RNA sequence: GGCACAAACUUGAAGUAGAAUAGUUGGGUAUGGUCAGCUGAUCCUACUAAUCUACUCUACUACGGUUUGUCCCU
Numbered sequence: 001g002g003c004a005c006a007a008a009c010u011u012g013a014a015g016u017a018g019a020a021u022a023g024u025u026g027g028g029u030a031u032g033g034u035c036a037g038c039u040g041a042u043c044c045u046a047c048u049a050a051u052c053u054a055c056u057c058u059a060c061u062a063c064g065g066u067u068u069g070u071c072c073c074u
Stems, first nucleotide, its partner, number of pairs: 001073002004070006011064002014061006021054003025050001027048004032043004

Source information
Rfam assigns this 74-nucleotide RNA sequence from Haemonchus placei to the family "mir-5928 microRNA precursor family". A search with the family's covariance model found it, with a score of 65 bits. The organism belongs to Haemonchus, within Eukaryota.